[Rfam]
RNA sequence: AACUGGUCUGAUGGCAGUGGGUUAUCAAAGCUUAUCACUAUUUAGUGUCACUAAUGUUGGCUUACAAGCCCCCACUACUAAAUUUGAACGGCUUAAA
Numbered sequence: 001a002a003c004u005g006g007u008c009u010g011a012u013g014g015c016a017g018u019g020g021g022u023u024a025u026c027a028a029a030g031c032u033u034a035u036c037a038c039u040a041u042u043u044a045g046u047g048u049c050a051c052u053a054a055u056g057u058u059g060g061c062u063u064a065c066a067a068g069c070c071c072c073c074a075c076u077a078c079u080a081a082a083u084u085u086g087a088a089c090g091g092c093u094u095a096a097a
Stems, first nucleotide, its partner, number of pairs: 001093001003091003007087002010085002016076006029062003034057001
The record is a 97-nucleotide RNA from Cebus imitator, which matches "Y RNA" in Rfam.
Lineage of the source: Eukaryota > Bilateria > Vertebrata > Mammalia > Cebus.
Rfam classes the family as a non-coding RNA gene.
Y RNAs are components of the Ro ribonucleoprotein particle (Ro RNP), in association with Ro60 and La proteins.
A reference for the family is Mosig et al. (2007), "Evolution of the vertebrate Y RNA cluster", Theory Biosci.